[Rfam]
RNA sequence: CCACUUGCGCAGCACUCUGUGAACACCUAUCUAACAGUUGUCCUUCGGGACUAUGAACAUAAACGCGCUCGUAAUAAGCGGAUCGGACCAGGGGGCGGUACCCUGCGGCUCCACCAAACAUCCUUCAUUUGGGGAUCAUGGGGCCGAAAUAGGAUCGACGAACGUCUAAAGGGGUUAGCUUUGUUUCGGUGAGACACCACCGUUAUCGGUUCAAUUAAGCUAGUUGCAAAUGACAACAAAGCACCGAUGGCUCUGGCUGCUUAAGCAGUCCGAAAUAUCGAAACUUUAAGUCCUUAGGCUCGCAGCCUCUGGCGGGGUUCGCAGGUACCUGGCAACAGAAACCUGCACU
Numbered sequence: 001c002c003a004c005u006u007g008c009g010c011a012g013c014a015c016u017c018u019g020u021g022a023a024c025a026c027c028u029a030u031c032u033a034a035c036a037g038u039u040g041u042c043c044u045u046c047g048g049g050a051c052u053a054u055g056a057a058c059a060u061a062a063a064c065g066c067g068c069u070c071g072u073a074a075u076a077a078g079c080g081g082a083u084c085g086g087a088c089c090a091g092g093g094g095g096c097g098g099u100a101c102c103c104u105g106c107g108g109c110u111c112c113a114c115c116a117a118a119c120a121u122c123c124u125u126c127a128u129u130u131g132g133g134g135a136u137c138a139u140g141g142g143g144c145c146g147a148a149a150u151a152g153g154a155u156c157g158a159c160g161a162a163c164g165u166c167u168a169a170a171g172g173g174g175u176u177a178g179c180u181u182u183g184u185u186u187c188g189g190u191g192a193g194a195c196a197c198c199a200c201c202g203u204u205a206u207c208g209g210u211u212c213a214a215u216u217a218a219g220c221u222a223g224u225u226g227c228a229a230a231u232g233a234c235a236a237c238a239a240a241g242c243a244c245c246g247a248u249g250g251c252u253c254u255g256g257c258u259g260c261u262u263a264a265g266c267a268g269u270c271c272g273a274a275a276u277a278u279c280g281a282a283a284c285u286u287u288a289a290g291u292c293c294u295u296a297g298g299c300u301c302g303c304a305g306c307c308u309c310u311g312g313c314g315g316g317g318u319u320c321g322c323a324g325g326u327a328c329c330u331g332g333c334a335a336c337a338g339a340a341a342c343c344u345g346c347a348c349u
Base pairs, nucleotide, nucleotide: 040051041050042049043048055186056185057184058183059182065179066178067175068174069173070172079164080163083161084160085159089105090104091103092102093101106146107145108144109143110142111141112140187202188201189200190199193212194211196210197209198208315330316329317328318327321346322345323344324343325342326341
Record summary: The record is a 349-nucleotide RNA from Loktanella sp. S4079, which matches "Alphaproteobacteria transfer-messenger RNA" in Rfam. Gene Ontology term of the family: RNA catabolic process. A search with the family's covariance model found it, with a score of 295 bits. Bacterial tmRNA, also known as 10Sa RNA or SsrA, is named for its dual tRNA and mRNA-like properties. Its role is to liberate the mRNA from a stalled ribosome. To accomplish this part of the tmRNA is used as a reading frame that ends in a translation stop signal. The broken mRNA is replaced in the ribosome by the tmRNA and translation of the tmRNA leads to addition of a proteolysis tag to the incomplete protein enabling recognition by a protease. Recently a number of permuted tmRNA genes have been found encoded in two parts. tmRNAs have been identified in eubacteria and some chloroplasts but are absent from archaeal and eukaryote nuclear genomes. Clan: tRNA clan. Rfam classes the family as a non-coding RNA gene. NCBI's taxonomy places the organism under Bacteria, Pseudomonadati, Alphaproteobacteria, Roseobacteraceae, Loktanella. The base pairs follow the family's consensus structure, which is taken from published work.